[Rfam]
RNA sequence: CUGCAGCCCAUUGAGUCAAUGGGGCUCCUUUCCUUGUGGGGGCCCAGUGUUUGCAAUGGCUACAAACAGCAGCCUCCUUGGUCAUAUAUGCAGCUGCUGCUUGGAUGGCUGGCCUAAGGGACCUUGGAGGCAGAA
Numbered sequence: 001c002u003g004c005a006g007c008c009c010a011u012u013g014a015g016u017c018a019a020u021g022g023g024g025c026u027c028c029u030u031u032c033c034u035u036g037u038g039g040g041g042g043c044c045c046a047g048u049g050u051u052u053g054c055a056a057u058g059g060c061u062a063c064a065a066a067c068a069g070c071a072g073c074c075u076c077c078u079u080g081g082u083c084a085u086a087u088a089u090g091c092a093g094c095u096g097c098u099g100c101u102u103g104g105a106u107g108g109c110u111g112g113c114c115u116a117a118g119g120g121a122c123c124u125u126g127g128a129g130g131c132a133g134a135a
Stems, first nucleotide, its partner, number of pairs: 002055004019048002022045001025042004080123003091111005